About this RNA: S15-Flavobacteria ribosomal protein leader: a 65-nucleotide RNA. Pairs were carried over by alignment from the consensus structure, which is taken from published work. For this family Rfam cites "Discovery of 20 novel ribosomal leader candidates in bacteria and archaea" (Eckert and Weinberg, BMC Microbiol, 2020). Its Rfam clan is "Ribosomal Protein S15 Leader clan". Rfam classes the family as a cis-regulatory leader.

RNA sequence: UACCUUUGCACCCAAUCAGGAAAAUCCUGAAUUUACAUAAUAAUUAUUUAAAUAAUAUUGGCAUG
Number, nucleotide and partner (000 for none) at each position: 001u000002a000003c000004c000005u000006u000007u000008g000009c000010a000011c000012c000013c000014a032015a000016u030017c029018a028019g027020g000021a000022a000023a000024a000025u000026c000027c019028u018029g017030a016031a000032u014033u000034u000035a000036c000037a000038u000039a000040a000041u000042a000043a000044u000045u000046a000047u000048u000049u000050a000051a000052a000053u000054a000055a000056u000057a000058u000059u000060g000061g000062c000063a000064u000065g000